[Rfam]
Shown here is a 70-nucleotide RNA sequence from Rodentolepis nana, a member of the family "HDV ribozyme from F. prausnitzii". The source organism's lineage runs through Eukaryota, Metazoa, Lophotrochozoa, Eucestoda and Rodentolepis. Its family is annotated with catalytic activity in the Gene Ontology. The family's consensus secondary structure is taken from published work. The match comes from Rfam's covariance-model search (44 bits).

RNA sequence: GGUGCGCGAUUGACUUACCUCCACGUGGUGCACCCUGGGCAACGUAUAUUCAUACGGCAAAAAAGUCUAU
Numbered sequence: 001g002g003u004g005c006g007c008g009a010u011u012g013a014c015u016u017a018c019c020u021c022c023a024c025g026u027g028g029u030g031c032a033c034c035c036u037g038g039g040c041a042a043c044g045u046a047u048a049u050u051c052a053u054a055c056g057g058c059a060a061a062a063a064a065g066u067c068u069a070u
Stems, first nucleotide, its partner, number of pairs: 001034005017029003043056005